RNA sequence: GGGACAUGUUAUUGUAUUCGACUGUAUUCACGGCGUGAAAUAGAGGAUUACACUAUUUUUAAAAGGAAAGUGAAUCAAUUAACACAAUAGACUCCU
Numbered sequence: 001g002g003g004a005c006a007u008g009u010u011a012u013u014g015u016a017u018u019c020g021a022c023u024g025u026a027u028u029c030a031c032g033g034c035g036u037g038a039a040a041u042a043g044a045g046g047a048u049u050a051c052a053c054u055a056u057u058u059u060u061a062a063a064a065g066g067a068a069a070g071u072g073a074a075u076c077a078a079u080u081a082a083c084a085c086a087a088u089a090g091a092c093u094c095c096u
Base pairs, nucleotide, nucleotide: 002095003094004093009090010089011088012087013086014085015084017082018081020080021079023077024076026075027074028073029072030071031070034065037059038058039057040056041055042054043053
Source information: Shown here is a 96-nucleotide RNA sequence from Nicotiana sylvestris, a member of the family "MIR6152 microRNA precursor family". Rfam links the family to the GO terms miRNA-mediated post-transcriptional gene silencing and RISC complex. Taxonomically the source falls in Nicotiana (Eukaryota, Mesangiospermae, eudicotyledons, Nicotianoideae). Rfam 15.1 lists 5,807 matches to the family in 3 species.